[Rfam]
RNA sequence: UGGCUGGCCUCGUACUUCUUUGCAUAACCAUACGGAUUUUCGGCUGUGGAAUGUAAAGAAGUAUGUAGCCACUAG
Dot-bracket structure: ......((..(((((((((((((((..(((((............))))).)))))))))))))))..))......
The family of this 75-nucleotide sequence from Trichuris suis is "mir-1 microRNA precursor family". The literature on the family includes a 2001 paper in Science by Lee and Ambros, "An extensive class of small RNAs in Caenorhabditis elegans". This family represents the microRNA (miRNA) mir-1 family. miRNAs are transcribed as ~70nt precursors (modelled here) and subsequently processed by the Dicer enzyme to give a ~22nt product. In this case the mature sequence comes from the 3' arm of the precursor. Pairs were carried over by alignment from the consensus structure, which was predicted with RNAalifold. Rfam links the family to the GO terms RISC complex and miRNA-mediated post-transcriptional gene silencing. It scores 56 bits against the family's covariance model.